[Rfam]
Record summary: The record is a 95-nucleotide sequence, which matches "RT-17 RNA" in Rfam. The family's consensus secondary structure is taken from published work.

RNA sequence: GGCCUCGCCCGACGGCGGAAAAUAAACUAAACGAAAGAUGCUGGUAGAUCGUAAAUUGUACGAGCCGAACGCGUGAUAAGUAAAAAAGCAGACAA
Numbered sequence: 001g002g003c004c005u006c007g008c009c010c011g012a013c014g015g016c017g018g019a020a021a022a023u024a025a026a027c028u029a030a031a032c033g034a035a036a037g038a039u040g041c042u043g044g045u046a047g048a049u050c051g052u053a054a055a056u057u058g059u060a061c062g063a064g065c066c067g068a069a070c071g072c073g074u075g076a077u078a079a080g081u082a083a084a085a086a087a088g089c090a091g092a093c094a095a
Stems, first nucleotide, its partner, number of pairs: 006017004039073003047066001050062004